About this RNA:
The family of this 91-nucleotide sequence from Planomicrobium sp. CPCC 101110 is "c-di-GMP-I riboswitch aptamer". Its family is annotated with cyclic-di-GMP binding in the Gene Ontology.
RNA sequence: AACACGAAACGGCAUACUUGCUGAAAAGCAAGGACGCAAAACCACAGAUCUAAGGAUUGGAAAGACGAUCUAUGAUGGCUGGGUUACCGAA
Numbered sequence: 001a002a003c004a005c006g007a008a009a010c011g012g013c014a015u016a017c018u019u020g021c022u023g024a025a026a027a028g029c030a031a032g033g034a035c036g037c038a039a040a041a042c043c044a045c046a047g048a049u050c051u052a053a054g055g056a057u058u059g060g061a062a063a064g065a066c067g068a069u070c071u072a073u074g075a076u077g078g079c080u081g082g083g084u085u086a087c088c089g090a091a
Stems, first nucleotide, its partner, number of pairs: 012037002017032006040085004045081003048076003055070004